This 114-nucleotide RNA from Caenorhabditis latens belongs to the Rfam family "Potassium channel RNA editing signal". Its family is annotated with adenosine to inosine editing in the Gene Ontology. This family represents a group of sequences related to the human potassium channel Kv1.1 hairpin element which directs the efficient modification of an adenosine to inosine by an adenosine deaminase acting on RNA (ADAR). The ADAR modification causes an isoleucine/valine recoding event which lies in the ion-conducting pore of the potassium channel.

[Rfam]
RNA sequence: CUCGGUUACGGAGACAUGGUCCCUUCAACGAUAAUGGGUAAAAUAGUGGGAGGAAUAUGCUCAUUAUCCGGAGUGUUGGUCAUUGCCCUGCCCGUUCCUGUCAUCGUCAGCAAC
Numbered sequence: 001c002u003c004g005g006u007u008a009c010g011g012a013g014a015c016a017u018g019g020u021c022c023c024u025u026c027a028a029c030g031a032u033a034a035u036g037g038g039u040a041a042a043a044u045a046g047u048g049g050g051a052g053g054a055a056u057a058u059g060c061u062c063a064u065u066a067u068c069c070g071g072a073g074u075g076u077u078g079g080u081c082a083u084u085g086c087c088c089u090g091c092c093c094g095u096u097c098c099u100g101u102c103a104u105c106g107u108c109a110g111c112a113a114c
Base pairs, nucleotide, nucleotide: 002113004111008107009106010105011104013102014101015100016099018097019096021094037077038076039075040074050062051061
NCBI's taxonomy places the organism under Eukaryota, Eumetazoa, Ecdysozoa, Chromadorea, Caenorhabditis.
A search with the family's covariance model found it, with a score of 91 bits.